[Rfam]
RNA sequence: AACUAAAAAAAAUUAUUAAAAUUUAAAUUAGAUUUUACUUAUUGGAAUUUAAUUAAUUUUGGUAAAAAUAUAAUAAACCAUUUCUAGCUAUAUGAUUAUGCAAACCAUAAAGCUGCGAAGGGGUUUAAUUG
Numbered sequence: 001a002a003c004u005a006a007a008a009a010a011a012a013u014u015a016u017u018a019a020a021a022u023u024u025a026a027a028u029u030a031g032a033u034u035u036u037a038c039u040u041a042u043u044g045g046a047a048u049u050u051a052a053u054u055a056a057u058u059u060u061g062g063u064a065a066a067a068a069u070a071u072a073a074u075a076a077a078c079c080a081u082u083u084c085u086a087g088c089u090a091u092a093u094g095a096u097u098a099u100g101c102a103a104a105c106c107a108u109a110a111a112g113c114u115g116c117g118a119a120g121g122g123g124u125u126u127a128a129u130u131g
Stems, first nucleotide, its partner, number of pairs: 013065011026054009036044002074127006081120004085115004091109004